RNA sequence: UGUUGAAGCUUUGCACCCAGGGUCUGCAAGUGAGACAAUGUACCUGGAGCUUUAUUUGUUGUUAAUAAACAUAAUU
Numbered sequence: 001u002g003u004u005g006a007a008g009c010u011u012u013g014c015a016c017c018c019a020g021g022g023u024c025u026g027c028a029a030g031u032g033a034g035a036c037a038a039u040g041u042a043c044c045u046g047g048a049g050c051u052u053u054a055u056u057u058g059u060u061g062u063u064a065a066u067a068a069a070c071a072u073a074a075u076u
Base pairs, nucleotide, nucleotide: 005053006052007051008050009049017047018046019045020044022036023035024034025033
This 76-nucleotide RNA sequence from Xenopus laevis belongs to the Rfam family "U1A polyadenylation inhibition element (PIE)". The base pairs follow the family's consensus structure, which is taken from published work. Rfam describes the family as follows. This family represents the U1A polyadenylation inhibition element (PIE). PIE is a regulatory RNA which is responsible for the regulation of the length of the polyA tail of the U1A pre-mRNA. The PIE is located in the U1A mRNA 3' UTR. PIE adopts a U-shaped structure, with binding sites for a single U1A protein at each bend and when complexed with the two proteins it blocks activity of poly(A) polymerase (PAP), and inhibits its activity. A search with the family's covariance model found it, with a score of 50 bits. Rfam 15.1 lists 510 matches to the family in 331 species.